[Rfam]
RNA sequence: UUAGCUACUUUAGAUAGGUUUGUAUUUAUGAGAUAUAUAAAAUCAUCAUAGAUACAAAUCUUUAAAAUUUGUAUCUAUGAUGGCUAAAAUUAAUUUGUUAUGCGAAGCCACAUAGAUAAUCACUAUGUGGCUUUUAUCAAUCCUAGGCAAAAAAGCCACAUAGUGAAUGCUAUGUGGCUUUUUAUAUAUUAAAAUAUAAA
Numbered sequence: 001u002u003a004g005c006u007a008c009u010u011u012a013g014a015u016a017g018g019u020u021u022g023u024a025u026u027u028a029u030g031a032g033a034u035a036u037a038u039a040a041a042a043u044c045a046u047c048a049u050a051g052a053u054a055c056a057a058a059u060c061u062u063u064a065a066a067a068u069u070u071g072u073a074u075c076u077a078u079g080a081u082g083g084c085u086a087a088a089a090u091u092a093a094u095u096u097g098u099u100a101u102g103c104g105a106a107g108c109c110a111c112a113u114a115g116a117u118a119a120u121c122a123c124u125a126u127g128u129g130g131c132u133u134u135u136a137u138c139a140a141u142c143c144u145a146g147g148c149a150a151a152a153a154a155g156c157c158a159c160a161u162a163g164u165g166a167a168u169g170c171u172a173u174g175u176g177g178c179u180u181u182u183u184a185u186a187u188a189u190u191a192a193a194a195u196a197u198a199a200a
Stems, first nucleotide, its partner, number of pairs: 001087007011077006018059014062071001064069001091153001094151006106132006113125003154179007
RNA: Enterococcus sRNA 2410
Organism: Terrisporobacter othiniensis